[Rfam]
Nucleotides: 072
Stems, first nucleotide, its partner, number of pairs: 012068002015065015
Number, partner (000 for none) and nucleotide at each position: 001000a002000u003000u004000u005000c006000a007000g008000g009000u010000u011000u012068u013067c014000c015065u016064c017063g018062g019061c020060a021059g022058u023057u024056a025055a026054c027053u028052g029051c030000a031000g032000c033000c034000g035000g036000u037000u038000c039000u040000u041000u042000a043000a044000a045000a046000u047000u048000u049000c050000g051029g052028c053027a054026g055025u056024u057023a058022a059021c060020u061019g062018u063017c064016g065015a066000g067013g068012g069000g070000u071000a072000u